[Rfam]
Source information:
Rfam assigns this 239-nucleotide sequence from Streptomyces albiflavescens to the family "Streptomyces sRNA 4677". A search with the family's covariance model found it, with a score of 104 bits. The family has 12 seed sequences and 563 matches in Rfam 15.1. The source organism's lineage runs through Bacteria, Bacillati, Actinomycetes, Kitasatosporales and Streptomyces. Rfam describes the family as follows. Located in the intergenic region between anti-sigma factor SCO4677 gene and a putative regulatory protein gene SCO4676. scr4677 expression requires the SCO4677 activity and scr4677 sRNA itself seem to affect the levels of the SCO4676-associated transcripts. The pairing is the family consensus, mapped onto this sequence.
RNA sequence: CGUUCGCGACAUCAAAGCUUUUCAAUUCCCCAGGGAGAAAACCCCUCCCAGCCCCACCAGCCUCCCGUCACUCGCAAGGGUGACGAUCACCAACUCGGCUGGAUUUUCCGCCCGUUGGCGGGCAUAUGCUCGCGGCGACAGCGCACAAGCGCCACCACAACCGCAGACAUGCGACGGCCCCCGGCCGGGACUGGCAUCCCGAUCGAGGGCCUGACCAACGAGGAAGCAGGACCUUCCCG
Numbered sequence: 001c002g003u004u005c006g007c008g009a010c011a012u013c014a015a016a017g018c019u020u021u022u023c024a025a026u027u028c029c030c031c032a033g034g035g036a037g038a039a040a041a042c043c044c045c046u047c048c049c050a051g052c053c054c055c056a057c058c059a060g061c062c063u064c065c066c067g068u069c070a071c072u073c074g075c076a077a078g079g080g081u082g083a084c085g086a087u088c089a090c091c092a093a094c095u096c097g098g099c100u101g102g103a104u105u106u107u108c109c110g111c112c113c114g115u116u117g118g119c120g121g122g123c124a125u126a127u128g129c130u131c132g133c134g135g136c137g138a139c140a141g142c143g144c145a146c147a148a149g150c151g152c153c154a155c156c157a158c159a160a161c162c163g164c165a166g167a168c169a170u171g172c173g174a175c176g177g178c179c180c181c182c183g184g185c186c187g188g189g190a191c192u193g194g195c196a197u198c199c200c201g202a203u204c205g206a207g208g209g210c211c212u213g214a215c216c217a218a219c220g221a222g223g224a225a226g227c228a229g230g231a232c233c234u235u236c237c238c239g
Stems, first nucleotide, its partner, number of pairs: 005067002068083006098150002100132003176211005182205002187200004222237005

For this family Rfam cites "Complex intra-operonic dynamics mediated by a small RNA in Streptomyces coelicolor" (Hindra et al., PLoS One, 2014).